Plastid-psbN 5UTR RNA: a 61-nucleotide sequence from Hydrostachys goudotiana. The family's consensus secondary structure was predicted with LocARNA. NCBI's taxonomy places the organism under Eukaryota, Streptophytina, Magnoliopsida, Pentapetalae, Hydrostachys. Plastid psbN is a non-coding RNA (ncRNA) recognised in plastids. It was reported as a conserved 11 stem-loop in the prime untranslated region (5UTR) of psbN genes. It has been reported that the motif is retained in a subset of mature transcripts in barley, which can suggests a possible role in transcript alternative 5 prime processing.

[Rfam]
RNA sequence: UGAAAUACCCAUUAAUGGAGUAGUUCCCCAUCCCGGAGCUACUUUACCAUAUUCCGAAUUU
Numbered sequence: 001u002g003a004a005a006u007a008c009c010c011a012u013u014a015a016u017g018g019a020g021u022a023g024u025u026c027c028c029c030a031u032c033c034c035g036g037a038g039c040u041a042c043u044u045u046a047c048c049a050u051a052u053u054c055c056g057a058a059u060u061u
Base pairs, nucleotide, nucleotide: 017045018044019043020042021041022040023039024038025037026036027035